[Rfam]
RNA sequence: UGGAACCUUCGGGGUCCUUUAACCAUAGCAGGCCAAUCGCCUGCGUUUAAAAGCGGAAGACAGUAA
Number, nucleotide and partner (000 for none) at each position: 001u000002g017003g016004a015005a000006c014007c013008u012009u000010c000011g000012g008013g007014g006015u004016c003017c002018u000019u000020u000021a000022a000023c000024c000025a000026u000027a000028g044029c043030a042031g041032g040033c039034c000035a000036a000037u000038c000039g033040c032041c031042u030043g029044c028045g000046u000047u000048u000049a000050a000051a000052a000053g000054c000055g000056g000057a000058a000059g000060a000061c000062a000063g000064u000065a000066a000
RNA: L2-Alphaproteobacteria ribosomal protein leader